RNA sequence: GUAGAUGCUCAUUCCAUAUUUUAUGUUUGCGAAAGCUUCAUAAAGCCCGGAAUGAUGCAGAGCCCUUACGAUACCUGUUGUCCAGCCGCCACUAUCGUCGCAAGACCUUAAUGGUACAAGGACACUACGUUGAGUCAGGUAUCACCCAACUUGUCUUACCGACCUGAACGUUUACACCUGCCGGACUGGCGGGUGUUUUUUU
Numbered sequence: 001g002u003a004g005a006u007g008c009u010c011a012u013u014c015c016a017u018a019u020u021u022u023a024u025g026u027u028u029g030c031g032a033a034a035g036c037u038u039c040a041u042a043a044a045g046c047c048c049g050g051a052a053u054g055a056u057g058c059a060g061a062g063c064c065c066u067u068a069c070g071a072u073a074c075c076u077g078u079u080g081u082c083c084a085g086c087c088g089c090c091a092c093u094a095u096c097g098u099c100g101c102a103a104g105a106c107c108u109u110a111a112u113g114g115u116a117c118a119a120g121g122a123c124a125c126u127a128c129g130u131u132g133a134g135u136c137a138g139g140u141a142u143c144a145c146c147c148a149a150c151u152u153g154u155c156u157u158a159c160c161g162a163c164c165u166g167a168a169c170g171u172u173u174a175c176a177c178c179u180g181c182c183g184g185a186c187u188g189g190c191g192g193g194u195g196u197u198u199u200u201u202u
Base pairs, nucleotide, nucleotide: 001063002062006059007058008057009055010054011053012052015050017049019042027035070143071142072141073140074139075138076137080123081122082121083120091112093110094109153163154162155161174196175195176194177193178192179191180190181189182188183187
Background:
The record is a 202-nucleotide RNA sequence from Erwinia tracheiphila, which matches "GlmZ RNA activator of glmS mRNA" in Rfam. For this family Rfam cites "Novel small RNA-encoding genes in the intergenic regions of Escherichia coli" (Argaman et al., Curr Biol, 2001). Clan: Glm clan. Rfam's curators write: This RNA was discovered in E. coli during a large scale screen. The sraJ gene was expressed in early logarithmic phase, but its level decreased with cell growth. The family's consensus secondary structure is taken from published work. The family's RNA type in Rfam is small RNA.